[Rfam]
RNA sequence: UGGACCUCCUCAGAGCAGGUGGCUUGAAGAAUGGCUUCUCUGUUUACAACAUGCCCAACAGGAACUUAGCAUCACUGUGACAAGGGGCGUAGAACUUACGACUUCCCUUUGAGAAAAGGUGCCAUGCAU
Numbered sequence: 001u002g003g004a005c006c007u008c009c010u011c012a013g014a015g016c017a018g019g020u021g022g023c024u025u026g027a028a029g030a031a032u033g034g035c036u037u038c039u040c041u042g043u044u045u046a047c048a049a050c051a052u053g054c055c056c057a058a059c060a061g062g063a064a065c066u067u068a069g070c071a072u073c074a075c076u077g078u079g080a081c082a083a084g085g086g087g088c089g090u091a092g093a094a095c096u097u098a099c100g101a102c103u104u105c106c107c108u109u110u111g112a113g114a115a116a117a118g119g120u121g122c123c124a125u126g127c128a129u
Stems, first nucleotide, its partner, number of pairs: 002056002005053001007051001013045007021037001022035003069122004076115001078113001081111002084104003088100005